[Rfam]
RNA: Histone 3' UTR stem-loop
Nucleotides: 046
Stems, first nucleotide, its partner, number of pairs: 006021006
Number, partner (000 for none) and nucleotide at each position: 001000c002000c003000a004000a005000a006021g007020g008019u009018u010017c011016u012000u013000u014000u015000a016011a017010g018009a019008a020007c021006c022000a023000c024000c025000a026000u027000c028000u029000g030000a031000c032000c033000c034000a035000u036000u037000c038000c039000u040000g041000u042000c043000u044000u045000a046000u